[Rfam]
RNA: 6S / SsrS RNA
RNA sequence: CGUCCGCUGCGUUCGCGGGGGUUUUAUUUCCUUGAACCGAUGCUCUCGCGAGCCUGGGCUUGGAACAUCGACCAGCUGGUGUGAUCGUCUCGCGUCAGAUGAACCCGAAGCCGGUCUGACCUCGCCCACCUGAAUCCCCUGGGUUCAGGAAUGCGGCCUUCGGUUCGCAGCGGACAC
Numbered sequence: 001c002g003u004c005c006g007c008u009g010c011g012u013u014c015g016c017g018g019g020g021g022u023u024u025u026a027u028u029u030c031c032u033u034g035a036a037c038c039g040a041u042g043c044u045c046u047c048g049c050g051a052g053c054c055u056g057g058g059c060u061u062g063g064a065a066c067a068u069c070g071a072c073c074a075g076c077u078g079g080u081g082u083g084a085u086c087g088u089c090u091c092g093c094g095u096c097a098g099a100u101g102a103a104c105c106c107g108a109a110g111c112c113g114g115u116c117u118g119a120c121c122u123c124g125c126c127c128a129c130c131u132g133a134a135u136c137c138c139c140u141g142g143g144u145u146c147a148g149g150a151a152u153g154c155g156g157c158c159u160u161c162g163g164u165u166c167g168c169a170g171c172g173g174a175c176a177c
Base pairs, nucleotide, nucleotide: 002175003174004173005172006171007170008169009166011164012163014162015161028151029150030149031148033147034146035145036144037143038142056127057126058125062121063120067117070116071115072114073113075111076110081104082103086101087100088099089098090097